[Rfam]
RNA: Mammalian CPEB3 ribozyme
Organism: Crocodylus porosus
RNA sequence: GGAGGAGGUUGGGGGGACAUGGUAGAAAUGCUCCUGUUGUGACCCCUGUCAGGUAACACCUGAUAAUACCUGAAAAUUCAGCU
Numbered sequence: 001g002g003a004g005g006a007g008g009u010u011g012g013g014g015g016g017a018c019a020u021g022g023u024a025g026a027a028a029u030g031c032u033c034c035u036g037u038u039g040u041g042a043c044c045c046c047u048g049u050c051a052g053g054u055a056a057c058a059c060c061u062g063a064u065a066a067u068a069c070c071u072g073a074a075a076a077u078u079c080a081g082c083u
Stems, first nucleotide, its partner, number of pairs: 013046004018041001021083003025079003028040003050072006